A member of the RNA family "GA-cis RNA" from Eubacterium sp. CAG:161, 88 nucleotides long. The source organism's lineage runs through Bacteria, Bacillota, Clostridia, Eubacteriales and Eubacterium.
[Rfam]
RNA sequence: UACAGGAGGAAACCAAAUGAACGAAGUUCAUUUAUAAAAAUGUUUCCGACGAAAUGUCGCCGACCGAAGGGAGGGGGCAAUACAUAUU
Numbered sequence: 001u002a003c004a005g006g007a008g009g010a011a012a013c014c015a016a017a018u019g020a021a022c023g024a025a026g027u028u029c030a031u032u033u034a035u036a037a038a039a040a041u042g043u044u045u046c047c048g049a050c051g052a053a054a055u056g057u058c059g060c061c062g063a064c065c066g067a068a069g070g071g072a073g074g075g076g077g078c079a080a081u082a083c084a085u086a087u088u
Stems, first nucleotide, its partner, number of pairs: 008047006016032006056078003060074002064070002
The family's consensus secondary structure is taken from published work. A search with the family's covariance model found it, with a score of 89 bits.